Rfam assigns this 187-nucleotide RNA from Desulforamulus aquiferis to the family "6S / SsrS RNA". The family's consensus secondary structure is taken from published work. The source organism's lineage runs through Bacteria, Bacillota, Clostridia, Peptococcaceae and Desulforamulus. E. coli 6S RNA was the first non coding RNA to be sequenced, but its function was unknown until recently. It consists of 184 nucleotides that fold into an extended hairpin structure with a large single-stranded internal bulge. The 6S RNA specifically associates with RNA polymerase holoenzyme containing the sigma70 specificity factor.

RNA sequence: ACUACCCUACUCUGUGCGUGUUGCACCUGAAGUUUUGAGCCAACAUUUUUUGAAAGGGAGUCCGACUCAACGCAAGGGAAUGUAGACCUUACAUAGUAUAAGGAAACAGGAAUCUGCGGGAGGGCACCCACCUGUUGGAGAACAGGUUCAAAAACUUUGGGCUUAUACACGGCAUGGUGGGGUUAUC
Numbered sequence: 001a002c003u004a005c006c007c008u009a010c011u012c013u014g015u016g017c018g019u020g021u022u023g024c025a026c027c028u029g030a031a032g033u034u035u036u037g038a039g040c041c042a043a044c045a046u047u048u049u050u051u052g053a054a055a056g057g058g059a060g061u062c063c064g065a066c067u068c069a070a071c072g073c074a075a076g077g078g079a080a081u082g083u084a085g086a087c088c089u090u091a092c093a094u095a096g097u098a099u100a101a102g103g104a105a106a107c108a109g110g111a112a113u114c115u116g117c118g119g120g121a122g123g124g125c126a127c128c129c130a131c132c133u134g135u136u137g138g139a140g141a142a143c144a145g146g147u148u149c150a151a152a153a154a155c156u157u158u159g160g161g162c163u164u165a166u167a168c169a170c171g172g173c174a175u176g177g178u179g180g181g182g183u184u185a186u187c
Stems, first nucleotide, its partner, number of pairs: 004183008013174003017171003032155004036150006056129003060125004071118004076113001082107002087103005